[Rfam]
RNA: Y RNA
Organism: Propithecus coquereli
RNA sequence: GGCUGGUCCAAGUGUAGUGGUGUUUACAACUAAUUGAUCACAACCAGUUACGAUUCCUUUGUUCCUCCUCCAUUCCCACUGCUUCAUUUGACUAGCCUUAA
Numbered sequence: 001g002g003c004u005g006g007u008c009c010a011a012g013u014g015u016a017g018u019g020g021u022g023u024u025u026a027c028a029a030c031u032a033a034u035u036g037a038u039c040a041c042a043a044c045c046a047g048u049u050a051c052g053a054u055u056c057c058u059u060u061g062u063u064c065c066u067c068c069u070c071c072a073u074u075c076c077c078a079c080u081g082c083u084u085c086a087u088u089u090g091a092c093u094a095g096c097c098u099u100a101a
Base pairs, nucleotide, nucleotide: 001097002096003095004094005093006092007091008090010089011088014085016080017079018078019077020076022075028063029062030061032059033058